Record summary
Shown here is a 108-nucleotide RNA sequence from Vibrio viridaestus, a member of the family "Qrr RNA". The match comes from Rfam's covariance-model search (86 bits). Rfam 15.1 lists 148 matches to the family in 70 species. The organism belongs to Vibrio, within Bacteria. The literature on the family includes a 2007 paper in Genes Dev by Tu and Bassler, "Multiple small RNAs act additively to integrate sensory information and control quorum sensing in Vibrio harveyi". Rfam's curators write: This family represents a set of small RNAs (the Qrr RNAs) that are thought to be involved in the regulation of quorum sensing in Vibrio species.

RNA sequence: UGACCCUUUAUUAGCUAAAGGGUCACCUAGCCAACUGACGUUGUUAGUGAAUUAAAUUUGUUCACGAGUUAUAACCACUUGUAUAUUUGUACAGGUGGUUUUUUUUUG
Numbered sequence: 001u002g003a004c005c006c007u008u009u010a011u012u013a014g015c016u017a018a019a020g021g022g023u024c025a026c027c028u029a030g031c032c033a034a035c036u037g038a039c040g041u042u043g044u045u046a047g048u049g050a051a052u053u054a055a056a057u058u059u060g061u062u063c064a065c066g067a068g069u070u071a072u073a074a075c076c077a078c079u080u081g082u083a084u085a086u087u088u089g090u091a092c093a094g095g096u097g098g099u100u101u102u103u104u105u106u107u108g
Base pairs, nucleotide, nucleotide: 001025002024003023004022005021006020041074042073043072044071047065048064049063050062051061052060075098076097077096078095079094080093081092082091